Rfam assigns this 195-nucleotide sequence from Dorcoceras hygrometricum to the family "MIR159 microRNA precursor family". The family has 66 seed sequences and 3,649 matches in Rfam 15.1. Gene Ontology terms of the family: miRNA-mediated post-transcriptional gene silencing and RISC complex. It scores 102 bits against the family's covariance model. The organism belongs to Dorcoceras, within Eukaryota.
[Rfam]
RNA sequence: GGAGGAACUAAGGAGCUUCCUUCAGUCCAGUCUGAGACAUUUUAGAGCUGAAAACACAGCUGCUGACUCGUUGGUUCACGAACUCAUCGGGAUAAGUGAGUUUGGGUCGGUGUGUUUCUGAUCCAACGAUGCGGGAGCUGUGUUCGGUUUUUGUUGUCGUAGCUUGGACUGAAGGGAGCUCCCUGUUGGUCCAAU
Numbered sequence: 001g002g003a004g005g006a007a008c009u010a011a012g013g014a015g016c017u018u019c020c021u022u023c024a025g026u027c028c029a030g031u032c033u034g035a036g037a038c039a040u041u042u043u044a045g046a047g048c049u050g051a052a053a054a055c056a057c058a059g060c061u062g063c064u065g066a067c068u069c070g071u072u073g074g075u076u077c078a079c080g081a082a083c084u085c086a087u088c089g090g091g092a093u094a095a096g097u098g099a100g101u102u103u104g105g106g107u108c109g110g111u112g113u114g115u116u117u118c119u120g121a122u123c124c125a126a127c128g129a130u131g132c133g134g135g136a137g138c139u140g141u142g143u144u145c146g147g148u149u150u151u152u153g154u155u156g157u158c159g160u161a162g163c164u165u166g167g168a169c170u171g172a173a174g175g176g177a178g179c180u181c182c183c184u185g186u187u188g189g190u191c192c193a194a195u
Stems, first nucleotide, its partner, number of pairs: 013181008023171007036158001060137002063134003069128004077120001